[Rfam]
RNA sequence: CUGUGUCGGGAUCGCCCCCCGUCAGCGCGUUGCGCCCACGGGGGCGUUUAUC
Numbered sequence: 001c002u003g004u005g006u007c008g009g010g011a012u013c014g015c016c017c018c019c020c021g022u023c024a025g026c027g028c029g030u031u032g033c034g035c036c037c038a039c040g041g042g043g044g045c046g047u048u049u050a051u052c
Stems, first nucleotide, its partner, number of pairs: 016044007025035004
Record summary:
The record is a 52-nucleotide RNA sequence from Roseovarius sp. TM1035, which matches "ffh sRNA" in Rfam. It is annotated as a small RNA. Rfam's curators put it in the seed alignment. The family's consensus secondary structure is taken from published work.